This 117-nucleotide sequence from Xenorhabdus innexi belongs to the Rfam family "Pseudoknot of the regulatory region of the repBA gene". By type it is a cis-regulatory element. Its family is annotated with translation in the Gene Ontology. The family's consensus secondary structure is taken from published work. On this family, see Athanasopoulos et al., J Bacteriol 1999: "Analysis of elements involved in pseudoknot-dependent expression and regulation of the repA gene of an IncL/M plasmid". The match comes from Rfam's covariance-model search (46 bits). The source organism's lineage runs through Bacteria, Gammaproteobacteria, Enterobacterales, Morganellaceae and Xenorhabdus.
[Rfam]
RNA sequence: ACGCCCCCGAAAUUGUGUAUCAACUUGGCGGUAGACUCACAAUUCACGAGGGCGCAGGCUCAAAACUUAACAAGAGUUUAGCACAUGUACAGACAGAGACAACACCCCGCCAUAAGC
Numbered sequence: 001a002c003g004c005c006c007c008c009g010a011a012a013u014u015g016u017g018u019a020u021c022a023a024c025u026u027g028g029c030g031g032u033a034g035a036c037u038c039a040c041a042a043u044u045c046a047c048g049a050g051g052g053c054g055c056a057g058g059c060u061c062a063a064a065a066c067u068u069a070a071c072a073a074g075a076g077u078u079u080a081g082c083a084c085a086u087g088u089a090c091a092g093a094c095a096g097a098g099a100c101a102a103c104a105c106c107c108c109g110c111c112a113u114a115a116g117c
Stems, first nucleotide, its partner, number of pairs: 002054005008048002012043006020035002026112006